[Rfam]
Description: The record is a 357-nucleotide part of an RNA from methanogenic archaeon ISO4-H5, which matches "Archaeal large subunit ribosomal RNA" in Rfam. For this family Rfam cites "The comparative RNA web (CRW) site: an online database of comparative sequence and structure information for ribosomal, intron, and other RNAs" (Cannone et al., BMC Bioinformatics, 2002). The family's consensus secondary structure is taken from published work.
RNA sequence: UAGCAUAAUCGAGGCGAGGGAACUCGGCAAAUUAGCCCUGUAACUUCGGGAUAAAGGGUGCCAGUAGUGAGAGCUACUGGUCGCAGUGACAAGAGAACACCGACUGUUUAGUAAAAACAUAGGUCUCAGCUAGUCCGAAAGGAUGUGUAUUGGGGCCGAAGCCUGCCCAGUGUCGGCAUCUGAAAUUCGGUUUCAACCGAUCGAAGGACCGAUAAACGGCGGGGGUAACUAUGACCCUCUUAAGGUAGCGUAAUACCUUGUCGCUUAAUUGGCGACUUGCAUGAAGGCUCAACGAGUGUUCUACUGUCCCCGCCUCGACGCUAGUGAAAACAAUCAAUCUGGUGCACAAUCCAGAUC
Numbered sequence: 001u002a003g004c005a006u007a008a009u010c011g012a013g014g015c016g017a018g019g020g021a022a023c024u025c026g027g028c029a030a031a032u033u034a035g036c037c038c039u040g041u042a043a044c045u046u047c048g049g050g051a052u053a054a055a056g057g058g059u060g061c062c063a064g065u066a067g068u069g070a071g072a073g074c075u076a077c078u079g080g081u082c083g084c085a086g087u088g089a090c091a092a093g094a095g096a097a098c099a100c101c102g103a104c105u106g107u108u109u110a111g112u113a114a115a116a117a118c119a120u121a122g123g124u125c126u127c128a129g130c131u132a133g134u135c136c137g138a139a140a141g142g143a144u145g146u147g148u149a150u151u152g153g154g155g156c157c158g159a160a161g162c163c164u165g166c167c168c169a170g171u172g173u174c175g176g177c178a179u180c181u182g183a184a185a186u187u188c189g190g191u192u193u194c195a196a197c198c199g200a201u202c203g204a205a206g207g208a209c210c211g212a213u214a215a216a217c218g219g220c221g222g223g224g225g226u227a228a229c230u231a232u233g234a235c236c237c238u239c240u241u242a243a244g245g246u247a248g249c250g251u252a253a254u255a256c257c258u259u260g261u262c263g264c265u266u267a268a269u270u271g272g273c274g275a276c277u278u279g280c281a282u283g284a285a286g287g288c289u290c291a292a293c294g295a296g297u298g299u300u301c302u303a304c305u306g307u308c309c310c311c312g313c314c315u316c317g318a319c320g321c322u323a324g325u326g327a328a329a330a331c332a333a334u335c336a337a338u339c340u341g342g343u344g345c346a347c348a349a350u351c352c353a354g355a356u357c
Stems, first nucleotide, its partner, number of pairs: 001323004009318008018309003035059005044049001060081009082086001094302007101294002105119003122157008130147001133144004160289004165220003170217002172213005179208003187200004221239006240244001260276006338355005